Notes:
Rfam assigns this 548-nucleotide part of an RNA from Candidatus Endomicrobiellum trichonymphae to the family "Bacterial large subunit ribosomal RNA". Pairs were carried over by alignment from the consensus structure, which is taken from published work.
RNA sequence: UAAUAAGUGCAUAUGGUGAAUGCCUUGGCUAAGACUGUCGAUGAAGGACGUGGUAAGCUGCGUUAAGCGUCGGGUAGGUGCAAACAACCUUUGAUCCGGCGAUUUCCGAAUGGGGUAACCCACUGCAGAGUAAUUUGCAGUAUCCGAGAGGAAGGCAACCCGGGGAAGUGAAACAUCUCAGUACCCGGAGGAAAAGAAAUCAAUCGAGAUACCGAAAGUAGUGGCGAGCGAAAUCGGUAUAGCCUAAACUAUUGUGUUUACACAAUAGGGUUGCAGGACCGCGUGAGUAGAGUUACCAAUCAAAAAACUAAUUAAACGGUUUGGAAAGUCCGACCAUAGAAGGUGAAAGUCCUGUAAGUGAAAGUUUUUUGACUCGAAGCGGUAUCCUAAGUACCGUCGGACACGUGAAAUCCAGCGGGAAUCAGGGGGGACCACCCUCCAAGGCUAAAUACAAGUCUUAGACCGAUAGUGAACCAGUACCGUGAGGGAAAGGUGAAAAGAACCGUGGAAACGGAGUGAAAUAGAACCUGAAACCGUAUGCAUACAAG
Numbered sequence: 001u002a003a004u005a006a007g008u009g010c011a012u013a014u015g016g017u018g019a020a021u022g023c024c025u026u027g028g029c030u031a032a033g034a035c036u037g038u039c040g041a042u043g044a045a046g047g048a049c050g051u052g053g054u055a056a057g058c059u060g061c062g063u064u065a066a067g068c069g070u071c072g073g074g075u076a077g078g079u080g081c082a083a084a085c086a087a088c089c090u091u092u093g094a095u096c097c098g099g100c101g102a103u104u105u106c107c108g109a110a111u112g113g114g115g116u117a118a119c120c121c122a123c124u125g126c127a128g129a130g131u132a133a134u135u136u137g138c139a140g141u142a143u144c145c146g147a148g149a150g151g152a153a154g155g156c157a158a159c160c161c162g163g164g165g166a167a168g169u170g171a172a173a174c175a176u177c178u179c180a181g182u183a184c185c186c187g188g189a190g191g192a193a194a195a196g197a198a199a200u201c202a203a204u205c206g207a208g209a210u211a212c213c214g215a216a217a218g219u220a221g222u223g224g225c226g227a228g229c230g231a232a233a234u235c236g237g238u239a240u241a242g243c244c245u246a247a248a249c250u251a252u253u254g255u256g257u258u259u260a261c262a263c264a265a266u267a268g269g270g271u272u273g274c275a276g277g278a279c280c281g282c283g284u285g286a287g288u289a290g291a292g293u294u295a296c297c298a299a300u301c302a303a304a305a306a307a308c309u310a311a312u313u314a315a316a317c318g319g320u321u322u323g324g325a326a327a328g329u330c331c332g333a334c335c336a337u338a339g340a341a342g343g344u345g346a347a348a349g350u351c352c353u354g355u356a357a358g359u360g361a362a363a364g365u366u367u368u369u370u371g372a373c374u375c376g377a378a379g380c381g382g383u384a385u386c387c388u389a390a391g392u393a394c395c396g397u398c399g400g401a402c403a404c405g406u407g408a409a410a411u412c413c414a415g416c417g418g419g420a421a422u423c424a425g426g427g428g429g430g431a432c433c434a435c436c437c438u439c440c441a442a443g444g445c446u447a448a449a450u451a452c453a454a455g456u457c458u459u460a461g462a463c464c465g466a467u468a469g470u471g472a473a474c475c476a477g478u479a480c481c482g483u484g485a486g487g488g489a490a491a492g493g494u495g496a497a498a499a500g501a502a503c504c505g506u507g508g509a510a511a512c513g514g515a516g517u518g519a520a521a522u523a524g525a526a527c528c529u530g531a532a533a534c535c536g537u538a539u540g541c542a543u544a545c546a547a548g
Base pairs, nucleotide, nucleotide: 007543008542009541010540011539012538013537014536015535016534022528023493024492027464028463029461030460031459032458033457034456035455036453037452038155039154046107047106048105049062050061051060068101069100070099071098072097073096074095077089078088079087112121113120114119122141123140124139125138126137127136128135143152144151145150159190160188161187162186163185164184170177171176200207201206210449211238212237213236214235215234221229222228241446242445243444244443249268250267251266252265253264254263255262275388276387277386279382280381281380282379298374300372301371302370303369304368305367306366307365308364309363311359312358313357317332318331319330321328335339341353342352343351394418395417396416397415399413400412401411425440426439427438428437429436480487481486503514504513505512506511
Dot-bracket structure: ......((((((((((.....(((..(((((((((((((......((((((........))).....(((((((..(((.......))).....)))))))...)))....(((....)))(((((((......))))))).(((....))).))...((((((.....((....))......))))).).........((....))..((((((.....((.....))....)))))..((((....(((((((......)))))))......(((.((((...............(.((((((((((.(((...(((.(......).)))..(...).(((.......)))...)))...)))))))))).)....))))...))).....((((.(((.........))).))))......(((((......)))))..))))..)..)).))))))).))...............((....))....)).........((((....)))).............).....)))))))))).....